RNA sequence: AUUUGCCGGAGCGACACGAGCGCCCCGGCGCCAGACAACGCUGUGCGGCGGGAAGAACCGUGGCACUUCUGGGCGUU
Numbered sequence: 001a002u003u004u005g006c007c008g009g010a011g012c013g014a015c016a017c018g019a020g021c022g023c024c025c026c027g028g029c030g031c032c033a034g035a036c037a038a039c040g041c042u043g044u045g046c047g048g049c050g051g052g053a054a055g056a057a058c059c060g061u062g063g064c065a066c067u068u069c070u071g072g073g074c075g076u077u
Stems, first nucleotide, its partner, number of pairs: 004030006011023003043066004048061003

About this RNA:
Shown here is a 77-nucleotide RNA from Actinacidiphila oryziradicis, a member of the family "nrdJ RNA". Taxonomically the source falls in Actinacidiphila (Bacteria, Bacillati, Kitasatosporales, Streptomycetaceae). It scores 48 bits against the family's covariance model. The family's RNA type in Rfam is small RNA.